[Rfam]
RNA: mir-36_2 microRNA precursor family
Nucleotides: 064
Stems, first nucleotide, its partner, number of pairs: 003061001005059011017048003021045002024042002027040002
Number, partner (000 for none) and nucleotide at each position: 001000u002000u003061c004000a005059g006058g007057a008056u009055g010054u011053g012052c013051a014050u015049u016000g017048u018047g019046g020000u021045u022044g023000a024042u025041g026000u027040a028039g029000u030000g031000a032000a033000a034000g035000c036000a037000u038000u039028c040027u041025c042024a043000u044022c045021a046019c047018c048017g049015g050014g051013u052012g053011c054010a055009c056008a057007u058006u059005c060000g061003g062000c063000c064000a